[Rfam]
RNA sequence: CGUGAGACCUUCAUCCAACGGAUCGUCGGGUACGUACCUACCCGGAAGAGGGAGAAAUA
Numbered sequence: 001c002g003u004g005a006g007a008c009c010u011u012c013a014u015c016c017a018a019c020g021g022a023u024c025g026u027c028g029g030g031u032a033c034g035u036a037c038c039u040a041c042c043c044g045g046a047a048g049a050g051g052g053a054g055a056a057a058u059a
Stems, first nucleotide, its partner, number of pairs: 009051004014046002027044006
Shown here is a 59-nucleotide RNA sequence, a member of the family "msiK RNA". The family has 120 seed sequences and 1,374 matches in Rfam 15.1. It is one of the family's seed sequences. Rfam classes the family as a cis-regulatory element. Pairs were carried over by alignment from the consensus structure, which is taken from published work.